[Rfam]
RNA: Purine riboswitch aptamer
RNA sequence: AAAAAAUGUUUUUCCUCUUCCUGUAUAAUCCCGGGAAUAUGGCUCGGGAGUCUCUACCAGGCAGCCGUAAACUGUCUGACUACAGGAAGAGGGGUGUGGGAU
Numbered sequence: 001a002a003a004a005a006a007u008g009u010u011u012u013u014c015c016u017c018u019u020c021c022u023g024u025a026u027a028a029u030c031c032c033g034g035g036a037a038u039a040u041g042g043c044u045c046g047g048g049a050g051u052c053u054c055u056a057c058c059a060g061g062c063a064g065c066c067g068u069a070a071a072c073u074g075u076c077u078g079a080c081u082a083c084a085g086g087a088a089g090a091g092g093g094g095u096g097u098g099g100g101a102u
Stems, first nucleotide, its partner, number of pairs: 018088008029049007058078007